The record is a 70-nucleotide part of an RNA from uncultured bacterium OMZ60_11L23, which matches "Bacterial large subunit ribosomal RNA" in Rfam.
The sequence is in the family's curated seed alignment.
RNA sequence: GGUGGAAGCACAAUAUUAAUUGAAAUUUAUUUCUUUUAAUUCGUGUAACCGCGUGCCUUUUGUAUAAUGA
Numbered sequence: 001g002g003u004g005g006a007a008g009c010a011c012a013a014u015a016u017u018a019a020u021u022g023a024a025a026u027u028u029a030u031u032u033c034u035u036u037u038a039a040u041u042c043g044u045g046u047a048a049c050c051g052c053g054u055g056c057c058u059u060u061u062g063u064a065u066a067a068u069g070a
Base pairs, nucleotide, nucleotide: 002052003051004050005049008046009045010044011043056069058067